Rfam assigns this 353-nucleotide part of an RNA from Haloferax mediterranei to the family "Archaeal large subunit ribosomal RNA". Taxonomically the source falls in Haloferax (Archaea, Methanobacteriati, Methanobacteriota, Halobacteriales). Rfam's curators put it in the seed alignment.
RNA sequence: CUCAGUAGCAGCGAGAGUCGGGUGUGAACCCGACGACCUUACGCGCAAGGGUUCCUCGGCACUGUCAAUCAGCCGAGGGUUAGUCGAUCCUAAGUCUAUCCGUAAUUCGAAAUAGAUGAAAGGGAAACUGGUUAAUAUUCCAGUACCUUCUUGCAAUGAAAGUCGACGCUUUAGGAAACACCGAGGGCCUUCGCCCGGUCGAAUCACCGAACUUCGUGGAAGCCGUAAUGGCACGAAGCGAAAGAAUGGUGAGAUAGGGAAACUCGGCGGUACCUAGAGCCCGUGAAAAGACAAGCAAGAAGCUCGUACCGAGAUCCGACACAGGUGCGCUGGCAGAGUAAGCCAAGGUCGGU
Numbered sequence: 001c002u003c004a005g006u007a008g009c010a011g012c013g014a015g016a017g018u019c020g021g022g023u024g025u026g027a028a029c030c031c032g033a034c035g036a037c038c039u040u041a042c043g044c045g046c047a048a049g050g051g052u053u054c055c056u057c058g059g060c061a062c063u064g065u066c067a068a069u070c071a072g073c074c075g076a077g078g079g080u081u082a083g084u085c086g087a088u089c090c091u092a093a094g095u096c097u098a099u100c101c102g103u104a105a106u107u108c109g110a111a112a113u114a115g116a117u118g119a120a121a122g123g124g125a126a127a128c129u130g131g132u133u134a135a136u137a138u139u140c141c142a143g144u145a146c147c148u149u150c151u152u153g154c155a156a157u158g159a160a161a162g163u164c165g166a167c168g169c170u171u172u173a174g175g176a177a178a179c180a181c182c183g184a185g186g187g188c189c190u191u192c193g194c195c196c197g198g199u200c201g202a203a204u205c206a207c208c209g210a211a212c213u214u215c216g217u218g219g220a221a222g223c224c225g226u227a228a229u230g231g232c233a234c235g236a237a238g239c240g241a242a243a244g245a246a247u248g249g250u251g252a253g254a255u256a257g258g259g260a261a262a263c264u265c266g267g268c269g270g271u272a273c274c275u276a277g278a279g280c281c282c283g284u285g286a287a288a289a290g291a292c293a294a295g296c297a298a299g300a301a302g303c304u305c306g307u308a309c310c311g312a313g314a315u316c317c318g319a320c321a322c323a324g325g326u327g328c329g330c331u332g333g334c335a336g337a338g339u340a341a342g343c344c345a346a347g348g349u350c351g352g353u
Base pairs, nucleotide, nucleotide: 017034018033019032020031021030022029035350036349037348038347043330044329045328046327049310050309054078055077056076057075058074059073063071064070085306086305087304089123090122094117095116096115097114098113099112101109102108127144128143129142130141131140147302148301149300150299151298152297153296154295162292163291164290168280169279170278171277172276173275174274175273179269181267182266183265185196186195204252205251206250207249213242214241215240216239217238222232223231224230258263316325317324331345332344333343334342